[Rfam]
RNA sequence: CCUGUCCGACGGUCGGUCACAGGUCGGGAUGUGAUCCGCGGGGCACACGCUCCGGUCGGGAUUGAACCACGAA
Numbered sequence: 001c002c003u004g005u006c007c008g009a010c011g012g013u014c015g016g017u018c019a020c021a022g023g024u025c026g027g028g029a030u031g032u033g034a035u036c037c038g039c040g041g042g043g044c045a046c047a048c049g050c051u052c053c054g055g056u057c058g059g060g061a062u063u064g065a066a067c068c069a070c071g072a073a
Base pairs, nucleotide, nucleotide: 001023002022003021004020005019026068027067033063034062035061036060037059

Rfam assigns this 73-nucleotide sequence from Natrinema gari to the family "eL15-Euryarchaeota ribosomal protein leader". Rfam's curators put it in the seed alignment. For this family Rfam cites "Discovery of 20 novel ribosomal leader candidates in bacteria and archaea" (Eckert and Weinberg, BMC Microbiol, 2020). By type it is a cis-regulatory leader.